[Rfam]
RNA sequence: CUACAGUGAUGCUUUUAGUCAGCAGCAGUUCACCUAGGGAGUGUUGAUACUUUGGGUCUGAGUGG
Number, nucleotide and partner (000 for none) at each position: 001c000002u064003a063004c062005a000006g000007u000008g020009a019010u018011g000012c000013u000014u000015u000016u000017a000018g010019u009020c008021a000022g000023c000024a000025g000026c000027a000028g000029u000030u000031c000032a000033c000034c000035u000036a000037g000038g000039g000040a000041g000042u000043g000044u000045u000046g000047a000048u000049a000050c000051u000052u000053u000054g000055g000056g000057u000058c000059u000060g000061a000062g004063u003064g002065g000